[Rfam]
Annotation: c-di-GMP-II-GAG riboswitch aptamer: a 92-nucleotide RNA sequence. Pairs were carried over by alignment from the consensus structure, which is taken from published work. Rfam's curators put it in the seed alignment.
RNA sequence: ACGGUAGGGGGAGACGGAGACGCUCCGAGGGGAACGCGGUCACCUGCACACGUCCUCGAAGCUGAGUCAAUGGUGAGACCGGCCCACGUGGC
Numbered sequence: 001a002c003g004g005u006a007g008g009g010g011g012a013g014a015c016g017g018a019g020a021c022g023c024u025c026c027g028a029g030g031g032g033a034a035c036g037c038g039g040u041c042a043c044c045u046g047c048a049c050a051c052g053u054c055c056u057c058g059a060a061g062c063u064g065a066g067u068c069a070a071u072g073g074u075g076a077g078a079c080c081g082g083c084c085c086a087c088g089u090g091g092c
Base pairs, nucleotide, nucleotide: 003092005090006089007087009085010084011083013068014067015066022062023061024060025058027057028056029055030054038080039079040076041075042074043073044072